Rfam assigns this 32-nucleotide sequence to the family "L31-Firmicutes ribosomal protein leader". It is one of the family's seed sequences.
RNA sequence: CUAUGAGGAAAAGUUCCUCAUGGCGGAAGGAG
Dot-bracket structure: ((((((((((...)))))))))).........
Its Rfam clan is "Ribosomal Protein L31 Leader clan".